[Rfam]
RNA sequence: GUCGGCGAGGGUUGCUCCUCACUGUAAGCCAAGCAUAUGGGCGAUAGAAUGCUGGAUGCAUCCAUUAUGGAUCUUCGGCUGUUCGGCAUCCAUGUCGAGGACUGUGUCCUUUGGAGCCUGGUGUCGGCAUUCCGGUCCCCGAGUAGUCGUGGGCCGAGAGGCCGUUAAAUACGGGGGUAUUGGCCGAGGGCAGAAAUGCAGCAGGCAAAACUCCGAGCACUGGUGCGGCUAGAGGGUGGCACGUCUGAGUGGUCUUGUCGGGUAGUUGCCAUGGUGUGGUGUGGACUCACAUUCAU
Numbered sequence: 001g002u003c004g005g006c007g008a009g010g011g012u013u014g015c016u017c018c019u020c021a022c023u024g025u026a027a028g029c030c031a032a033g034c035a036u037a038u039g040g041g042c043g044a045u046a047g048a049a050u051g052c053u054g055g056a057u058g059c060a061u062c063c064a065u066u067a068u069g070g071a072u073c074u075u076c077g078g079c080u081g082u083u084c085g086g087c088a089u090c091c092a093u094g095u096c097g098a099g100g101a102c103u104g105u106g107u108c109c110u111u112u113g114g115a116g117c118c119u120g121g122u123g124u125c126g127g128c129a130u131u132c133c134g135g136u137c138c139c140c141g142a143g144u145a146g147u148c149g150u151g152g153g154c155c156g157a158g159a160g161g162c163c164g165u166u167a168a169a170u171a172c173g174g175g176g177g178u179a180u181u182g183g184c185c186g187a188g189g190g191c192a193g194a195a196a197u198g199c200a201g202c203a204g205g206c207a208a209a210a211c212u213c214c215g216a217g218c219a220c221u222g223g224u225g226c227g228g229c230u231a232g233a234g235g236g237u238g239g240c241a242c243g244u245c246u247g248a249g250u251g252g253u254c255u256u257g258u259c260g261g262g263u264a265g266u267u268g269c270c271a272u273g274g275u276g277u278g279g280u281g282u283g284g285a286c287u288c289a290c291a292u293u294c295a296u
Base pairs, nucleotide, nucleotide: 001045002044003043004023005022007020008019009018010017011016028042029041030040047294048293049292050291051290054287055286057283058282059281060280061279062278063276064275065274066273067272068271069270070269076268077267078266079265080264081263082262083261084260085259086258087257088256090252091251092250093249095247099246100245101244102243104242105241106240107239108235109234110233111232112231113230114229116226117225118223119222120221121220122219123218124217125164126163127162128161130159131158133156134155135154136153137152138151140149141148142147165171172215173214174213175212176211181208183206184205185204190199191198192197

This 296-nucleotide sequence from Jimgerdemannia flammicorona belongs to the Rfam family "Metazoan signal recognition particle RNA".
The family is grouped with related families in Rfam's "SRP clan".
Gene Ontology terms of the family: SRP-dependent cotranslational protein targeting to membrane, signal sequence recognition and signal recognition particle, endoplasmic reticulum targeting.
Rfam classes the family as a non-coding RNA gene.
Rfam 15.1 lists 383,523 matches to the family in 1,221 species.
The match comes from Rfam's covariance-model search (134 bits).
About the family: The signal recognition particle (SRP) is a universally conserved ribonucleoprotein.
A reference for the family is Wild et al. (2002), "Towards the structure of the mammalian signal recognition particle", Curr Opin Struct Biol.
Taxonomically the source falls in Jimgerdemannia (Eukaryota, Endogonomycetes, Endogonales, Endogonaceae).